The family of this 70-nucleotide sequence from Agrobacterium tumefaciens is "Rhizobiales sRNA Atu_C4". The literature on the family includes a 2012 paper in RNA Biol by Wilms et al., "Deep sequencing uncovers numerous small RNAs on all four replicons of the plant pathogen Agrobacterium tumefaciens". The sequence is in the family's curated seed alignment. Rfam classes the family as a small RNA. Lineage of the source: Bacteria > Pseudomonadati > Pseudomonadota > Hyphomicrobiales > Agrobacterium tumefaciens complex.

RNA sequence: AGGUCAUUUUCAUGACCGCGCAUCUCCAGUCAGGGCAGGCCGUUCCCAUACGGUCUUGCCCUUUUUUCUG
Numbered sequence: 001a002g003g004u005c006a007u008u009u010u011c012a013u014g015a016c017c018g019c020g021c022a023u024c025u026c027c028a029g030u031c032a033g034g035g036c037a038g039g040c041c042g043u044u045c046c047c048a049u050a051c052g053g054u055c056u057u058g059c060c061c062u063u064u065u066u067u068c069u070g
Stems, first nucleotide, its partner, number of pairs: 002017006027070003032062006038055006